Source information
This 134-nucleotide RNA sequence from Ornithorhynchus anatinus belongs to the Rfam family "Small nucleolar RNA SNORA84". The family's consensus secondary structure was predicted with WAR. The organism belongs to Ornithorhynchus, within Eukaryota. It is annotated as an H/ACA-box small nucleolar RNA. On this family, see Marker et al., Curr Biol 2002: "Experimental RNomics: identification of 140 candidates for small non-messenger RNAs in the plant Arabidopsis thaliana".

RNA sequence: GCCUUGUGGUUACUGGUUGCUGUUAUUGAUGCAGUACUCCAGUUGAUAGAAACUGGCCAAAAGUAAUUCUGUGAUUUUUUGCAUGGAGUCUGUAAUUCCUCAGCAGCCUCCAUAGCCCGGUCACAGUUACACAA
Numbered sequence: 001g002c003c004u005u006g007u008g009g010u011u012a013c014u015g016g017u018u019g020c021u022g023u024u025a026u027u028g029a030u031g032c033a034g035u036a037c038u039c040c041a042g043u044u045g046a047u048a049g050a051a052a053c054u055g056g057c058c059a060a061a062a063g064u065a066a067u068u069c070u071g072u073g074a075u076u077u078u079u080u081g082c083a084u085g086g087a088g089u090c091u092g093u094a095a096u097u098c099c100u101c102a103g104c105a106g107c108c109u110c111c112a113u114a115g116c117c118c119g120g121u122c123a124c125a126g127u128u129a130c131a132c133a134a
Base pairs, nucleotide, nucleotide: 001057002056003055007048008047010045012043013042014041015040016039019035020034021033022032023031069126071124072123073122074121075120076119081116082115083113084112085111086110088108090106091105092104093103